Shown here is a 135-nucleotide RNA from Carboxydothermus hydrogenoformans, a member of the family "Ribosomal protein L20 leader". Its family is annotated with regulation of gene expression in the Gene Ontology.

RNA sequence: AAAACAAAGUAGAAGCCACCUGCUUCUCACCUGAAAGCCGUUUGAGGCUUUGGGUUAAUAUUGAAAAGCAACGUGUGUCUGCUUUUCAGCUACUUUUGGGAAAAAGCGGGUGGAAGCCCGCUUUUUAUUUUUAAC
Dot-bracket structure: ..........((((((.....)))))).(((...(((((......)))))..))).................................................(((((((....))))))).............
The match comes from Rfam's covariance-model search (61 bits).
By type it is a cis-regulatory leader.
The source organism's lineage runs through Bacteria, Bacillota, Clostridia, Thermoanaerobacterales and Carboxydothermus hydrogenoformans.
The literature on the family includes a 1994 paper in Prog Nucleic Acid Res Mol Biol by Zengel and Lindahl, "Diverse mechanisms for regulating ribosomal protein synthesis in Escherichia coli".